[Rfam]
A member of the RNA family "mir-160 microRNA precursor family" from Musa troglodytarum, 90 nucleotides long. The family's consensus secondary structure was predicted with PFOLD. Taxonomically the source falls in Musa (Eukaryota, Streptophytina, Spermatophyta, Musaceae). A search with the family's covariance model found it, with a score of 76 bits.
Nucleotides: 090
Base pairs, nucleotide, nucleotide: 003088004087005086006085008083009082010081011080012079013078014077016075017074018073019072020071021070022069023068024067027064028063029062
Number, partner (000 for none) and nucleotide at each position: 001000u002000u003088g004087u005086g006085c007000c008083u009082g010081g011080c012079u013078c014077c015000c016075u017074g018073u019072a020071u021070g022069c023068c024067a025000c026000a027064u028063g029062c030000a031000u032000a033000g034000a035000c036000c037000g038000a039000u040000g041000u042000c043000c044000a045000c046000g047000g048000g049000g050000a051000g052000a053000u054000u055000g056000g057000a058000u059000c060000g061000u062029g063028c064027g065000g066000g067024u068023g069022g070021c071020g072019u073018g074017c075016a076000a077014g078013g079012a080011g081010c082009c083008a084000a085006g086005c087004a088003u089000u090000c

Description: A reference for the family is Rhoades et al. (2002), "Prediction of plant microRNA targets", Cell.